[Rfam]
RNA sequence: AUAAACACAAGGGAGUGCUUUUGCUGAGAUCGUUUUGCGAAAUCCUAAGAACCUGAUCUAGUUAAAACUAGCGUAGGAAUUGUGAUGCCUAAUGAC
Numbered sequence: 001a002u003a004a005a006c007a008c009a010a011g012g013g014a015g016u017g018c019u020u021u022u023g024c025u026g027a028g029a030u031c032g033u034u035u036u037g038c039g040a041a042a043u044c045c046u047a048a049g050a051a052c053c054u055g056a057u058c059u060a061g062u063u064a065a066a067a068c069u070a071g072c073g074u075a076g077g078a079a080u081u082g083u084g085a086u087g088c089c090u091a092a093u094g095a096c
Base pairs, nucleotide, nucleotide: 006084007083008082009081010080011046012045013044014043016040017024018023031039032038033037052077053076054075055074058071059070060069061068

The record is a 96-nucleotide RNA from Streptococcus zalophi, which matches "TPP riboswitch aptamer (THI element)" in Rfam. The match comes from Rfam's covariance-model search (65 bits).